The record is a 174-nucleotide RNA sequence from Juglans regia, which matches "U11 spliceosomal RNA" in Rfam. For this family Rfam cites "Additional low-abundance human small nuclear ribonucleoproteins: U11, U12, etc" (Montzka and Steitz, Proc Natl Acad Sci U S A, 1988). The base pairs follow the family's consensus structure, which is taken from published work.
RNA sequence: CUAAAGGGUCUGUGCAACUCUAGUUUUUGAGCAGAAAAAUGGAGCCCAUAUCAUGUUUAUCUGUACAUAAAGAACGCUCCCCCUCGACUGGUGAGUGCUGUAUGGCUGUCAAGACAUAUGGCCGACAUAAUUUGUGGAAUCCUACAGGGUUGGCUCGUUUCGGCCGACCCUAAA
Number, nucleotide and partner (000 for none) at each position: 001c000002u000003a000004a000005a000006g000007g000008g126009u125010c124011u000012g122013u053014g052015c000016a000017a000018c000019u000020c000021u000022a000023g000024u000025u000026u000027u000028u000029g000030a000031g000032c000033a000034g000035a000036a000037a000038a000039a000040u000041g000042g000043a000044g000045c000046c000047c000048a000049u000050a000051u000052c014053a013054u097055g096056u095057u094058u093059a092060u091061c090062u000063g088064u087065a000066c000067a000068u000069a000070a000071a000072g000073a000074a000075c000076g000077c000078u000079c000080c000081c000082c000083c000084u000085c000086g000087a064088c063089u000090g061091g060092u059093g058094a057095g056096u055097g054098c121099u120100g119101u118102a117103u116104g115105g000106c000107u000108g000109u000110c000111a000112a000113g000114a000115c104116a103117u102118a101119u100120g099121g098122c012123c000124g010125a009126c008127a000128u000129a000130a000131u000132u000133u000134g000135u000136g000137g000138a000139a000140u000141c000142c000143u000144a000145c000146a171147g170148g169149g168150u167151u166152g165153g164154c000155u163156c162157g161158u000159u000160u000161c157162g156163g155164c153165c152166g151167a150168c149169c148170c147171u146172a000173a000174a000